About this RNA
tRNA: a 117-nucleotide RNA from Saccharata proteae.
RNA sequence: GGCAUCGUGGCCGAGUGGUUAUGGCGGCAGACUCAAGGAAUUUCCUUAACUGCCUCUUCAAGCGCAGCUAGCAUUCUGCUGGAGCAAUCCGCACGAGUUCGAAUCUCGUCGAUGUCA
Numbered sequence: 001g002g003c004a005u006c007g008u009g010g011c012c013g014a015g016u017g018g019u020u021a022u023g024g025c026g027g028c029a030g031a032c033u034c035a036a037g038g039a040a041u042u043u044c045c046u047u048a049a050c051u052g053c054c055u056c057u058u059c060a061a062g063c064g065c066a067g068c069u070a071g072c073a074u075u076c077u078g079c080u081g082g083a084g085c086a087a088u089c090c091g092c093a094c095g096a097g098u099u100c101g102a103a104u105c106u107c108g109u110c111g112a113u114g115u116c117a
Stems, first nucleotide, its partner, number of pairs: 001116007010025004027079005093109005
Rfam links the family to the GO term triplet codon-amino acid adaptor activity. Rfam classes the family as a transfer RNA. The base pairs follow the family's consensus structure, which is taken from published work. It scores 46 bits against the family's covariance model. The source organism's lineage runs through Eukaryota, Fungi, Dikarya, Botryosphaeriales and Saccharata proteae.